[Rfam]
RNA: Small nucleolar RNA U109
RNA sequence: CUGCAUGUGGACAUGUCUGCCCCUCUUCUCUUGGGGAGUAGGAAUGUAUCCAUAACAUGCUACAGUGAUGAAGGAGUUCUCAGGGCUACCAACCUUACAGUAGAGGUUGAGUAGUAGUAUAUUUCUCCUACAUUG
Numbered sequence: 001c002u003g004c005a006u007g008u009g010g011a012c013a014u015g016u017c018u019g020c021c022c023c024u025c026u027u028c029u030c031u032u033g034g035g036g037a038g039u040a041g042g043a044a045u046g047u048a049u050c051c052a053u054a055a056c057a058u059g060c061u062a063c064a065g066u067g068a069u070g071a072a073g074g075a076g077u078u079c080u081c082a083g084g085g086c087u088a089c090c091a092a093c094c095u096u097a098c099a100g101u102a103g104a105g106g107u108u109g110a111g112u113a114g115u116a117g118u119a120u121a122u123u124u125c126u127c128c129u130a131c132a133u134u135g
Base pairs, nucleotide, nucleotide: 003060004059005058006057007056008055016042017041018040019039020038022036023035073128074127075126076125085115086114089111090109091108092107093106094105095104096103